[Rfam]
RNA sequence: UGGGAGUUUUGAUACAUGACACAAAGCUGUUAUUGAUGUGUUCAUCACUAAACUCCCUAAAUGAACACAGCUCUCUGAUGACUGUAUUUUGCUCAAGAAACAGCCAUACAGACAGAUACGGAGCUUACAGAU
Numbered sequence: 001u002g003g004g005a006g007u008u009u010u011g012a013u014a015c016a017u018g019a020c021a022c023a024a025a026g027c028u029g030u031u032a033u034u035g036a037u038g039u040g041u042u043c044a045u046c047a048c049u050a051a052a053c054u055c056c057c058u059a060a061a062u063g064a065a066c067a068c069a070g071c072u073c074u075c076u077g078a079u080g081a082c083u084g085u086a087u088u089u090u091g092c093u094c095a096a097g098a099a100a101c102a103g104c105c106a107u108a109c110a111g112a113c114a115g116a117u118a119c120g121g122a123g124c125u126u127a128c129a130g131a132u
Stems, first nucleotide, its partner, number of pairs: 002057005016045004025037001027035001067126001069125006082111003087106001090103001
Small Cajal body specific RNA 8: a 132-nucleotide RNA sequence from Pocillopora damicornis. It is annotated as a small Cajal body RNA. NCBI's taxonomy places the organism under Eukaryota, Eumetazoa, Scleractinia, Vacatina, Pocillopora. scaRNAs are a specific class of small nuclear RNAs which localise to the Cajal bodies and guide the modification of RNA polymerase II transcribed spliceosomal RNAs U1, U2, U4, U5 and U12. U92 belong to the H/ACA box class of guide RNAs as it has the predicted hairpin-hinge-hairpin-tail structure, conserved H/ACA-box motifs and is found associated with GAR1. The family has 22 seed sequences and 955 matches in Rfam 15.1. The literature on the family includes a 2002 paper in EMBO J by Darzacq et al., "Cajal body-specific small nuclear RNAs: a novel class of 2'-O-methylation and pseudouridylation guide RNAs". The match comes from Rfam's covariance-model search (57 bits).